Rfam assigns this 211-nucleotide sequence from Nonomuraea glycinis to the family "Actinobacteria sRNA Ms_IGR-5".
The family's RNA type in Rfam is small RNA.
RNA sequence: ACGCGGAAAGGAGGUGGUCCAAACAAUGGUGAAUCAUUAUUGGACUAGCGAGGUGGUUGUCCGCUAACGACGCGGACUUGUUGCUUCGGGUCGUUCGCGAGUACGAGGCAACCACCGGGGCCCCUGGCAGCCGGAGGACGGGAUCCCAUCCCGGCCUUAGUCCAUCCGGCCCACCUGCUCGGCAGGUGGAACGUCGCCUGGGGCCCUUCUU
Numbered sequence: 001a002c003g004c005g006g007a008a009a010g011g012a013g014g015u016g017g018u019c020c021a022a023a024c025a026a027u028g029g030u031g032a033a034u035c036a037u038u039a040u041u042g043g044a045c046u047a048g049c050g051a052g053g054u055g056g057u058u059g060u061c062c063g064c065u066a067a068c069g070a071c072g073c074g075g076a077c078u079u080g081u082u083g084c085u086u087c088g089g090g091u092c093g094u095u096c097g098c099g100a101g102u103a104c105g106a107g108g109c110a111a112c113c114a115c116c117g118g119g120g121c122c123c124c125u126g127g128c129a130g131c132c133g134g135a136g137g138a139c140g141g142g143a144u145c146c147c148a149u150c151c152c153g154g155c156c157u158u159a160g161u162c163c164a165u166c167c168g169g170c171c172c173a174c175c176u177g178c179u180c181g182g183c184a185g186g187u188g189g190a191a192c193g194u195c196g197c198c199u200g201g202g203g204c205c206c207u208u209c210u211u
Stems, first nucleotide, its partner, number of pairs: 013061006062099003066095003070091002073088004117207008126198003131189002
The match comes from Rfam's covariance-model search (56 bits). Pairs were carried over by alignment from the consensus structure.